Shown here is a 338-nucleotide sequence from Peptostreptococcaceae bacterium oral taxon 113, a member of the family "Bacterial RNase P class A".
Gene Ontology terms of the family: dimeric ribonuclease P complex, tRNA processing and ribonuclease P activity.
Taxonomically the source falls in Peptostreptococcaceae bacterium oral taxon 113 (Bacteria, Bacillati, Peptostreptococcales, Peptostreptococcaceae).
The family's consensus secondary structure is taken from published work.
Rfam describes the family as follows. Ribonuclease P (RNase P) is a ubiquitous endoribonuclease, found in archaea, bacteria and eukarya as well as chloroplasts and mitochondria. Its best characterised activity is the generation of mature 5'-ends of tRNAs by cleaving the 5'-leader elements of precursor-tRNAs. Cellular RNase Ps are ribonucleoproteins. RNA from bacterial RNase Ps retains its catalytic activity in the absence of the protein subunit, i.e. it is a ribozyme.
[Rfam]
RNA sequence: UAAGUAAAUCAGAUGAUCGCGUGUGUUUACACGAGGAAAGUCCGUGCACCGCAGAGCAGGAUACCGGAUAACGUCCGGUGGGGGCGACCCUAAGGAAAGUGCAACAGAGAGAUACCGCUUUGCGUGAGCGAAGUAAGGGUGGAAAGGUGAGGUAAGAGCUCACCAGCGUAUAAGCGAUUAUGACGGCUAUGUAAACCCUAUCCGGUGCAAGAUCGAAUGGACCAUAACAGCGGCUGCUCGUCGCUACUACAUGGUGGAUUGCUUGAGCUUAUCGGUAACGAUAAGACUAGAUAGAUGAUCAUCAAAUACAGAACACGGCUUAUAGAUUUGCUUUUGAC
Numbered sequence: 001u002a003a004g005u006a007a008a009u010c011a012g013a014u015g016a017u018c019g020c021g022u023g024u025g026u027u028u029a030c031a032c033g034a035g036g037a038a039a040g041u042c043c044g045u046g047c048a049c050c051g052c053a054g055a056g057c058a059g060g061a062u063a064c065c066g067g068a069u070a071a072c073g074u075c076c077g078g079u080g081g082g083g084g085c086g087a088c089c090c091u092a093a094g095g096a097a098a099g100u101g102c103a104a105c106a107g108a109g110a111g112a113u114a115c116c117g118c119u120u121u122g123c124g125u126g127a128g129c130g131a132a133g134u135a136a137g138g139g140u141g142g143a144a145a146g147g148u149g150a151g152g153u154a155a156g157a158g159c160u161c162a163c164c165a166g167c168g169u170a171u172a173a174g175c176g177a178u179u180a181u182g183a184c185g186g187c188u189a190u191g192u193a194a195a196c197c198c199u200a201u202c203c204g205g206u207g208c209a210a211g212a213u214c215g216a217a218u219g220g221a222c223c224a225u226a227a228c229a230g231c232g233g234c235u236g237c238u239c240g241u242c243g244c245u246a247c248u249a250c251a252u253g254g255u256g257g258a259u260u261g262c263u264u265g266a267g268c269u270u271a272u273c274g275g276u277a278a279c280g281a282u283a284a285g286a287c288u289a290g291a292u293a294g295a296u297g298a299u300c301a302u303c304a305a306a307u308a309c310a311g312a313a314c315a316c317g318g319c320u321u322a323u324a325g326a327u328u329u330g331c332u333u334u335u336g337a338c
Stems, first nucleotide, its partner, number of pairs: 002333009011323001012303007020033005038321003042318005047207004054239004059203005064078005079093001080091004094198002099196002101192003115138002117134007146164006166187001167185003170181004211260004221248001230244005268285007